RNA sequence: AUCCAAGUCAAACACUACACUUAAGCUUCUUUUUCAAGGUUUUUUUUACCUACCACAUCUACAUUCAUCAUGUCUCCUUGCACCUGCAACUGCUGCUCCGGCGAGUGCAACUCCUGCUCUUGUGCCAGCUGCAAGGUAUGUCAUUGCUUGCU
Numbered sequence: 001a002u003c004c005a006a007g008u009c010a011a012a013c014a015c016u017a018c019a020c021u022u023a024a025g026c027u028u029c030u031u032u033u034u035c036a037a038g039g040u041u042u043u044u045u046u047u048a049c050c051u052a053c054c055a056c057a058u059c060u061a062c063a064u065u066c067a068u069c070a071u072g073u074c075u076c077c078u079u080g081c082a083c084c085u086g087c088a089a090c091u092g093c094u095g096c097u098c099c100g101g102c103g104a105g106u107g108c109a110a111c112u113c114c115u116g117c118u119c120u121u122g123u124g125c126c127a128g129c130u131g132c133a134a135g136g137u138a139u140g141u142c143a144u145u146g147c148u149u150g151c152u
Stems, first nucleotide, its partner, number of pairs: 079103003086096003107132003116123002
The record is a 152-nucleotide RNA from Penicillium coprophilum, which matches "A. fumigatus sRNA Afu_254" in Rfam. The literature on the family includes a 2008 paper in Nucleic Acids Res by Jochl et al., "Small ncRNA transcriptome analysis from Aspergillus fumigatus suggests a novel mechanism for regulation of protein synthesis". The match comes from Rfam's covariance-model search (81 bits). By type it is a small RNA. The family has 6 seed sequences and 185 matches in Rfam 15.1.